[Rfam]
RNA sequence: GCGCUGGCCCGAAGGGGCCGUCUAUGAAAUAGACGGAUAGCCGAAAAGGUUCGAGUCUCGCAAAGCGAGACAACAUCACCCUGGUGAUGGCCCGAAGGGCGAGGCCAAAGGCCAAGUCAUCCUGCACGACCCACCA
Numbered sequence: 001g002c003g004c005u006g007g008c009c010c011g012a013a014g015g016g017g018c019c020g021u022c023u024a025u026g027a028a029a030u031a032g033a034c035g036g037a038u039a040g041c042c043g044a045a046a047a048g049g050u051u052c053g054a055g056u057c058u059c060g061c062a063a064a065g066c067g068a069g070a071c072a073a074c075a076u077c078a079c080c081c082u083g084g085u086g087a088u089g090g091c092c093c094g095a096a097g098g099g100c101g102a103g104g105c106c107a108a109a110g111g112c113c114a115a116g117u118c119a120u121c122c123u124g125c126a127c128g129a130c131c132c133a134c135c136a
Stems, first nucleotide, its partner, number of pairs: 015127001017125002020122001023119001034101002041099002050096004057067001074089006